[Rfam]
RNA sequence: GGCCCGCCUAUUGCUAUGUCUAUCACACCGAUAGCCAACGGCGGCUAUCACGCUUACGACAAAGACGUCGC
Numbered sequence: 001g002g003c004c005c006g007c008c009u010a011u012u013g014c015u016a017u018g019u020c021u022a023u024c025a026c027a028c029c030g031a032u033a034g035c036c037a038a039c040g041g042c043g044g045c046u047a048u049c050a051c052g053c054u055u056a057c058g059a060c061a062a063a064g065a066c067g068u069c070g071c
Base pairs, nucleotide, nucleotide: 030049031048032047033046034045035044036043

narK RNA: a 71-nucleotide sequence from Pseudomonas coronafaciens. NCBI's taxonomy places the organism under Bacteria, Pseudomonadota, Pseudomonadaceae, Pseudomonas coronafaciens, Pseudomonas coronafaciens pv. oryzae. Rfam's curators put it in the seed alignment.